[Rfam]
RNA sequence: AAUUAAGCCUAUCAGUGGAUGGCUCGGUUCGAGAGCCGAUGAAGGGCGUGCCAAGCUGCGAUAAGCUUCGGGGAGGCGCACGGAGCCAACGAUCCGAAGAUACCCUAAUGGGACAUCCUGACACUUUUGUGUCGAUCCGUAAGGAUUGGAAACGCCCCGAAUUGAAACAUCUUAGUAGGGGCAGGAGAAGAAAUCAAUCGAGAUGUCGUUAGUAGAGGCGAUCGAACACGACAGAGUUCAAACUGAAUCCCGCAAGGGAGAUGUGGUGUUGUAAGCUCACUGUUAUGCUUGUGUCUGUUAAGUGAAAGUCGUCUGGAACGUCGUACCAUAGAGGGUGAUAGUCCCGUACACGUAAACCGGCACAAACUAAGUGAAGUCUUGAGUACCGUGGGUCGGAAUUCUCGCGGGAAUCUGGGAGUCACUAACUUCCAAAACUAAAUACUCCUCGAAACCGAUAGCGUAUUAGUAGCGUGAGCGAAGGCUGAAAAGUAACCCCAGAAAGGUGGUUAAAAGUGCCUGAAAUUGAUAGGUGAUAGCGG
Dot-bracket structure: ......(((((((((.....(((..((((((((((.......(((((((........))).....((((((...(((.......)))......))))))...))))...(((....)))...............((((....))))......((((((.....((....))......))))).).........((....))...(((((.....((.....))....)))))..((((....(((..((((....))))....)))..........((((......(.((...........(((...(.((.(......).)))..(...).(((.......)))...)))............)).)...))))...........(((((((........)))))))......(((((.......)))))..)))).....)).)))))).))...............((....))....))..................................).....)))))))))........